A member of the RNA family "Purine riboswitch aptamer" from Fictibacillus enclensis, 109 nucleotides long.

[Rfam]
RNA sequence: UUAUUAGCAAAGAAUAAUCCUUGUAUAGUAUCAGUACAAUCGAAUUCGGUCUGAUAGUCUCUACCUGGCAGCCGUUAAAUGCCGGACUACAAGGAAGUAUGAAUACAUC
Dot-bracket structure: .................((((((((...((((((................))))))........((((((.........))))))..))))))))..............
Numbered sequence: 001u002u003a004u005u006a007g008c009a010a011a012g013a014a015u016a017a018u019c020c021u022u023g024u025a026u027a028g029u030a031u032c033a034g035u036a037c038a039a040u041c042g043a044a045u046u047c048g049g050u051c052u053g054a055u056a057g058u059c060u061c062u063a064c065c066u067g068g069c070a071g072c073c074g075u076u077a078a079a080u081g082c083c084g085g086a087c088u089a090c091a092a093g094g095a096a097g098u099a100u101g102a103a104u105a106c107a108u109c
Stems, first nucleotide, its partner, number of pairs: 018095008029056006065085006